The family of this 107-nucleotide RNA from Catenovulum maritimum is "Ribosomal S15 leader". Clan: Ribosomal Protein S15 Leader clan. Rfam links the family to the GO term regulation of translation, ncRNA-mediated.

[Rfam]
RNA sequence: UAGGUACGCUGGCUUAGUGAUCGGCCUACCCGAAUAUUGGAGUAAUAAUUAUGUCACUAACUGUUGCAGAAAAAGCACAAAUCGUUGCGGAUUACGCAUUGCAAGAA
Numbered sequence: 001u002a003g004g005u006a007c008g009c010u011g012g013c014u015u016a017g018u019g020a021u022c023g024g025c026c027u028a029c030c031c032g033a034a035u036a037u038u039g040g041a042g043u044a045a046u047a048a049u050u051a052u053g054u055c056a057c058u059a060a061c062u063g064u065u066g067c068a069g070a071a072a073a074a075g076c077a078c079a080a081a082u083c084g085u086u087g088c089g090g091a092u093u094a095c096g097c098a099u100u101g102c103a104a105g106a107a
Base pairs, nucleotide, nucleotide: 008025009024010023011022012021037060038059039058040057042055